[Rfam]
Annotation:
This 94-nucleotide RNA sequence from Colocasia esculenta belongs to the Rfam family "MIR535 microRNA precursor family". Rfam links the family to the GO terms miRNA-mediated post-transcriptional gene silencing and RISC complex.
RNA sequence: GGCGUUGCUUGACAACGAGAGAGAGCACGCCUGUCCGCAGCCCAAAGGACUGGUGGCUGUGUACCAGCGUGCUCUCCCUCGGUGUCAACUAGUU
Numbered sequence: 001g002g003c004g005u006u007g008c009u010u011g012a013c014a015a016c017g018a019g020a021g022a023g024a025g026c027a028c029g030c031c032u033g034u035c036c037g038c039a040g041c042c043c044a045a046a047g048g049a050c051u052g053g054u055g056g057c058u059g060u061g062u063a064c065c066a067g068c069g070u071g072c073u074c075u076c077c078c079u080c081g082g083u084g085u086c087a088a089c090u091a092g093u094u
Stems, first nucleotide, its partner, number of pairs: 010087005016081002021076001023074001025072006033064002
On this family, see Zeng et al., Nucleic Acids Res 2010: "Conservation and divergence of microRNAs and their functions in Euphorbiaceous plants".